Annotation:
A member of the RNA family "tRNA" from Drosophila virilis, 64 nucleotides long.
RNA sequence: AAUGAAUUGCCUGAUAAAAGGGUUAUCUUGAUAGGGUAAAUUAUGUAGGAUUCUACAUUCAUUG
Dot-bracket structure: (((((((..(((......))).(((((.......))))).....((((....))))))))))).

The base pairs follow the family's consensus structure, which is taken from published work.